[Rfam]
RNA: ssnA RNA
RNA sequence: ACAUAGAUGGCUGCAACGAAGUGCUUCGCGCACGGGCUGUAACGGUUU
Numbered sequence: 001a002c003a004u005a006g007a008u009g010g011c012u013g014c015a016a017c018g019a020a021g022u023g024c025u026u027c028g029c030g031c032a033c034g035g036g037c038u039g040u041a042a043c044g045g046u047u048u
Stems, first nucleotide, its partner, number of pairs: 008039005021033004